[Rfam]
RNA sequence: AAGUCGACUGCGGCUCAUCGUAAGGCAGUUUGCUUGUGUGGUCCGCCAGCUGCCUAGCGAAGGGCAACAAACGACUU
Numbered sequence: 001a002a003g004u005c006g007a008c009u010g011c012g013g014c015u016c017a018u019c020g021u022a023a024g025g026c027a028g029u030u031u032g033c034u035u036g037u038g039u040g041g042u043c044c045g046c047c048a049g050c051u052g053c054c055u056a057g058c059g060a061a062g063g064g065c066a067a068c069a070a071a072c073g074a075c076u077u
Base pairs, nucleotide, nucleotide: 003075004074005073006072009069010068013065014064015063016062018060019059020058021057024054025053026052027051032050033049034048
The record is a 77-nucleotide RNA sequence from Brenthis ino, which matches "mir-745 microRNA precursor family" in Rfam. The base pairs follow the family's consensus structure, which was predicted with RNAalifold.